[Rfam]
The family of this 82-nucleotide RNA sequence from Solanum commersonii is "mir-166 microRNA precursor family".
From the family's description: This family represents the plant microRNA (miRNA) precursor mir-166.
The organism belongs to Solanum, within Eukaryota.
The match comes from Rfam's covariance-model search (64 bits).
RNA sequence: GUUAAGGAGAAUGUUGUCUGGUUCGUGACCAUAUAUCCUUCAUCAUAUAAAUGAUCUCGGACCAGGCUUCAUUCCCCUCAAC
Numbered sequence: 001g002u003u004a005a006g007g008a009g010a011a012u013g014u015u016g017u018c019u020g021g022u023u024c025g026u027g028a029c030c031a032u033a034u035a036u037c038c039u040u041c042a043u044c045a046u047a048u049a050a051a052u053g054a055u056c057u058c059g060g061a062c063c064a065g066g067c068u069u070c071a072u073u074c075c076c077c078u079c080a081a082c
Base pairs, nucleotide, nucleotide: 001082002081003080005078006077007076009074010073011072012071013070016067017066018065019064020063021062024059025058